[Rfam]
RNA sequence: GACAGACAUUAAGGAUUCAAAAUGCGACCCCGCACCCACAGCUAAGUAGGCAUUCAUGCCUAGCUCUUUCAUCUGCUGUUCGCCAAUCACCCGGGUAGUAAUGUGGGUGCUAUUUGCGUCCGCCAAUUGACGGGCUUGCGAAGCAAGAUAGGCCGGGUUACAGAUAUUGGGUGGCAUAUUGCCGAGAUCUUUCGC
Numbered sequence: 001g002a003c004a005g006a007c008a009u010u011a012a013g014g015a016u017u018c019a020a021a022a023u024g025c026g027a028c029c030c031c032g033c034a035c036c037c038a039c040a041g042c043u044a045a046g047u048a049g050g051c052a053u054u055c056a057u058g059c060c061u062a063g064c065u066c067u068u069u070c071a072u073c074u075g076c077u078g079u080u081c082g083c084c085a086a087u088c089a090c091c092c093g094g095g096u097a098g099u100a101a102u103g104u105g106g107g108u109g110c111u112a113u114u115u116g117c118g119u120c121c122g123c124c125a126a127u128u129g130a131c132g133g134g135c136u137u138g139c140g141a142a143g144c145a146a147g148a149u150a151g152g153c154c155g156g157g158u159u160a161c162a163g164a165u166a167u168u169g170g171g172u173g174g175c176a177u178a179u180u181g182c183c184g185a186g187a188u189c190u191u192u193c194g195c
Stems, first nucleotide, its partner, number of pairs: 005189002013031002017027002035041001050059002062077003078135005084129004092122005099112002102109002136163003140159002144155001167186002170183003
The record is a 195-nucleotide RNA from bacteria symbiont BFo2 of Frankliniella occidentalis, which matches "Yersinia sRNA 276" in Rfam. A search with the family's covariance model found it, with a score of 132 bits. Rfam classes the family as an antisense RNA. On this family, see Nuss et al., PLoS Genet 2015: "Transcriptomic profiling of Yersinia pseudotuberculosis reveals reprogramming of the Crp regulon by temperature and uncovers Crp as a master regulator of small RNAs".